[Rfam]
RNA sequence: CUGCGGGUGAGAGUCCCGCCUCGGUAGGCGCCGGAGCGCCGAGUAGCAGGCCCCAGGCGUCGGGAGAGAUCCCGUCGUCCCGAGCGGGGCGUCGAAAGCCCGUCAGGCAGCGAGAGCUGUGCAGCGGGGAGCAAGAUCGCGGGCCGCAACAUGA
Numbered sequence: 001c002u003g004c005g006g007g008u009g010a011g012a013g014u015c016c017c018g019c020c021u022c023g024g025u026a027g028g029c030g031c032c033g034g035a036g037c038g039c040c041g042a043g044u045a046g047c048a049g050g051c052c053c054c055a056g057g058c059g060u061c062g063g064g065a066g067a068g069a070u071c072c073c074g075u076c077g078u079c080c081c082g083a084g085c086g087g088g089g090c091g092u093c094g095a096a097a098g099c100c101c102g103u104c105a106g107g108c109a110g111c112g113a114g115a116g117c118u119g120u121g122c123a124g125c126g127g128g129g130a131g132c133a134a135g136a137u138c139g140c141g142g143g144c145c146g147c148a149a150c151a152u153g154a
Stems, first nucleotide, its partner, number of pairs: 020043005050090005056080001057078003064071002099128004131147002

The record is a 154-nucleotide sequence from Sandaracinus amylolyticus, which matches "Group II catalytic intron D1-D4-4" in Rfam.
The literature on the family includes a 2001 paper in Trends Genet by Bonen and Vogel, "The ins and outs of group II introns".
The source organism's lineage runs through Bacteria, Pseudomonadati, Myxococcota, Polyangiales and Sandaracinus.
Group II introns are found in rRNA, tRNA and mRNA of organelles in fungi, plants and protists, and also in mRNA in bacteria.
Pairs were carried over by alignment from the consensus structure.
The match comes from Rfam's covariance-model search (69 bits).